[Rfam]
Record summary:
ASdes TB sRNA: a 68-nucleotide RNA from Nocardia mangyaensis. The organism belongs to Nocardia, within Bacteria. Rfam 15.1 lists 1,192 matches to the family in 825 species. On this family, see Arnvig and Young, Mol Microbiol 2009: "Identification of small RNAs in Mycobacterium tuberculosis". It is annotated as a small RNA.
RNA sequence: AGGGCCACCGGGUCGACCCCGCGGGUGACGACGAGGUAGUCGCGGAUCACGAUGCCGUGCCGGUUCUC
Numbered sequence: 001a002g003g004g005c006c007a008c009c010g011g012g013u014c015g016a017c018c019c020c021g022c023g024g025g026u027g028a029c030g031a032c033g034a035g036g037u038a039g040u041c042g043c044g045g046a047u048c049a050c051g052a053u054g055c056c057g058u059g060c061c062g063g064u065u066c067u068c
Stems, first nucleotide, its partner, number of pairs: 005062001008059001012029002016026003035056004040052003044048001